[Rfam]
RNA: uup RNA
RNA sequence: GGCGAAUCAACUCUGUACAAUCAAAGCCGAUGAAACAUUGUACAGAGU
Numbered sequence: 001g002g003c004g005a006a007u008c009a010a011c012u013c014u015g016u017a018c019a020a021u022c023a024a025a026g027c028c029g030a031u032g033a034a035a036c037a038u039u040g041u042a043c044a045g046a047g048u
Base pairs, nucleotide, nucleotide: 011047012046013045014044015043017041018040019039
Dot-bracket structure: ..........(((((.(((...................))).))))).